About this RNA
7SK RNA: a 325-nucleotide RNA sequence from Anser brachyrhynchus. The family's RNA type in Rfam is non-coding RNA gene.

RNA sequence: GGACCCGGCACUUGGCCUUGUUGUCACCCCAUUGAUUGCCAGGGUUGAUUCGGCUGAUCUGGCUGGCUAGGUGGGUGUCUCCUUCCUCUCUCACUGCUCCAUGUGCAUCCCACCCAAAGCUGUGCACUUGCUUGAAGAGGACGACCUUCCCUGAUAGAGGUGUACCAUUCAUCAGUCAAGGGUUUAUGGUAGCUGCACUCCCCUGCUAGAAUCUCCAGACAAGCUCAAGGUCCAUUUGUAGGAGAACUGCUAGAGUGAGGUUUCAGCAACUCGCCUCACUCAAGCCCCGAGUUGGCCAAACUGAGCUACAGCAACCUCAGUUGCU
Numbered sequence: 001g002g003a004c005c006c007g008g009c010a011c012u013u014g015g016c017c018u019u020g021u022u023g024u025c026a027c028c029c030c031a032u033u034g035a036u037u038g039c040c041a042g043g044g045u046u047g048a049u050u051c052g053g054c055u056g057a058u059c060u061g062g063c064u065g066g067c068u069a070g071g072u073g074g075g076u077g078u079c080u081c082c083u084u085c086c087u088c089u090c091u092c093a094c095u096g097c098u099c100c101a102u103g104u105g106c107a108u109c110c111c112a113c114c115c116a117a118a119g120c121u122g123u124g125c126a127c128u129u130g131c132u133u134g135a136a137g138a139g140g141a142c143g144a145c146c147u148u149c150c151c152u153g154a155u156a157g158a159g160g161u162g163u164a165c166c167a168u169u170c171a172u173c174a175g176u177c178a179a180g181g182g183u184u185u186a187u188g189g190u191a192g193c194u195g196c197a198c199u200c201c202c203c204u205g206c207u208a209g210a211a212u213c214u215c216c217a218g219a220c221a222a223g224c225u226c227a228a229g230g231u232c233c234a235u236u237u238g239u240a241g242g243a244g245a246a247c248u249g250c251u252a253g254a255g256u257g258a259g260g261u262u263u264c265a266g267c268a269a270c271u272c273g274c275c276u277c278a279c280u281c282a283a284g285c286c287c288c289g290a291g292u293u294g295g296c297c298a299a300a301c302u303g304a305g306c307u308a309c310a311g312c313a314a315c316c317u318c319a320g321u322u323g324c325u
Stems, first nucleotide, its partner, number of pairs: 002085002007082002014079003018075001021074005027066002029062003034059004038054003109162001110160002113157001115130003119127001132154003139150003192261003198255002202253001205250002213244004219239005283325003287320001289318002291315004